Record summary: Shown here is a 114-nucleotide sequence from Erwinia sorbitola, a member of the family "RtT RNA". About the family: This family represents a bacterial cis-regulatory element known as RtT RNA. The exact function of RtT is unknown although it is thought that it may be involved in changing the cellular response in relation to amino acid starvation. The base pairs follow the family's consensus structure, which is taken from published work. Rfam classes the family as a cis-regulatory element. A search with the family's covariance model found it, with a score of 88 bits.
RNA sequence: AAGCGGUGCAAACCGUGAAGGAUGAGAACCGUAAAAGGUUCGAGUCGAGCGAAAGCGAGACAACGUUGCUUCAGCAACGGCCCGAAGGGCGAAGUCAUCCUGCACGACCCACCA
Numbered sequence: 001a002a003g004c005g006g007u008g009c010a011a012a013c014c015g016u017g018a019a020g021g022a023u024g025a026g027a028a029c030c031g032u033a034a035a036a037g038g039u040u041c042g043a044g045u046c047g048a049g050c051g052a053a054a055g056c057g058a059g060a061c062a063a064c065g066u067u068g069c070u071u072c073a074g075c076a077a078c079g080g081c082c083c084g085a086a087g088g089g090c091g092a093a094g095u096c097a098u099c100c101u102g103c104a105c106g107a108c109c110c111a112c113c114a
Base pairs, nucleotide, nucleotide: 015105016104017103019101020100021099023097039086040085041084042083046057047056064079065078066077067076068075069074